About this RNA:
Small Cajal body specific RNA 6: a 263-nucleotide RNA sequence from Leptosomus discolor. The literature on the family includes a 2001 paper in EMBO J by Huttenhofer et al., "RNomics: an experimental approach that identifies 201 candidates for novel, small, non-messenger RNAs in mouse". U88 is small Cajal body specific RNA (scaRNA). scaRNAs are a novel class of small nuclear RNAs which localise to the Cajal bodies. U88 is found associated with both fibrillarin and Gar1p and co-localises with coilin in Cajal bodies. Rfam 15.1 lists 1,309 matches to the family in 627 species. NCBI's taxonomy places the organism under Eukaryota, Deuterostomia, Sauropsida, Aves, Leptosomus.
[Rfam]
RNA sequence: GGUCUGUGAUGAAUAGUAAAAGGUCUGAUUAUCCUAAGACUUGCACUUCCGUAACCUUUUCUCCCAGCAGUUUCUCACCAGUCACAGCACAGUAAUGGUGUGGCUGGCAGAGUGUUUGCUGACAGCUUGUGAUGUGCUCAGUUCAUGUUAACCUGAAGUAUCGGAGACAUGGCUGGGAUCAGCAUCCAACAGUCUUUCUUGAAAGAGUUUGGGGUCUUGGAUUUUUAUAACUGGACAUGUGAUCUGACUUUUCUGCUGAGACC
Numbered sequence: 001g002g003u004c005u006g007u008g009a010u011g012a013a014u015a016g017u018a019a020a021a022g023g024u025c026u027g028a029u030u031a032u033c034c035u036a037a038g039a040c041u042u043g044c045a046c047u048u049c050c051g052u053a054a055c056c057u058u059u060u061c062u063c064c065c066a067g068c069a070g071u072u073u074c075u076c077a078c079c080a081g082u083c084a085c086a087g088c089a090c091a092g093u094a095a096u097g098g099u100g101u102g103g104c105u106g107g108c109a110g111a112g113u114g115u116u117u118g119c120u121g122a123c124a125g126c127u128u129g130u131g132a133u134g135u136g137c138u139c140a141g142u143u144c145a146u147g148u149u150a151a152c153c154u155g156a157a158g159u160a161u162c163g164g165a166g167a168c169a170u171g172g173c174u175g176g177g178a179u180c181a182g183c184a185u186c187c188a189a190c191a192g193u194c195u196u197u198c199u200u201g202a203a204a205g206a207g208u209u210u211g212g213g214g215u216c217u218u219g220g221a222u223u224u225u226u227a228u229a230a231c232u233g234g235a236c237a238u239g240u241g242a243u244c245u246g247a248c249u250u251u252u253c254u255g256c257u258g259a260g261a262c263c
Stems, first nucleotide, its partner, number of pairs: 001263004037245003041241001048221004054215001061207003065121006078107009129187001131186005144171006152163001